[Rfam]
ZMP/ZTP riboswitch aptamer (pfl RNA motif): a 90-nucleotide sequence from Streptomyces sp. 150FB. The base pairs follow the family's consensus structure, which is taken from published work. For this family Rfam cites "Global RNA Fold and Molecular Recognition for a pfl Riboswitch Bound to ZMP, a Master Regulator of One-Carbon Metabolism" (Ren et al., Structure, 2015). Rfam links the family to the GO terms one-carbon metabolic process and regulation of purine nucleotide biosynthetic process.
RNA sequence: GCCACGUACGGCGACUGGCGCACGCGGAACCGACCGCGGGGGAGCCGUACGGGAAGACCGCACGAGGUGCCGUCCGCCUGGGCACCCCGG
Dot-bracket structure: ..(.((((((((..(([[[[...((((......))))..))..)))))))).).............(((((...]]]]..))))).....